[Rfam]
RNA sequence: UGGAGGACUGAGAAGGUGAGACAGUUACUUUAUGCUGUAUCUUACUGGUUAUAGCCUCCAAAAUCAUAAUAGUGCAAUGGCAACUCAUGUUCCCCUCCUGACUGAGGGAAGCAAUACUGCAUUUGCACAUAAGGC
Number, nucleotide and partner (000 for none) at each position: 001u000002g059003g058004a057005g056006g055007a000008c000009u000010g000011a000012g000013a000014a000015g046016g045017u044018g043019a040020g000021a038022c037023a036024g035025u034026u000027a000028c000029u000030u000031u000032a000033u000034g025035c024036u023037g022038u021039a000040u019041c000042u000043u018044a017045c016046u015047g000048g000049u000050u000051a000052u000053a000054g000055c006056c005057u004058c003059c002060a000061a000062a000063a000064u000065c000066a000067u000068a000069a000070u000071a000072g000073u000074g000075c000076a000077a000078u000079g000080g126081c125082a000083a000084c000085u000086c000087a000088u119089g118090u000091u000092c000093c000094c000095c000096u113097c000098c111099u110100g000101a000102c108103u000104g000105a000106g000107g000108g102109a000110a099111g098112c000113a096114a000115u000116a000117c000118u089119g088120c000121a000122u000123u000124u000125g081126c080127a000128c000129a000130u000131a000132a000133g000134g000135c000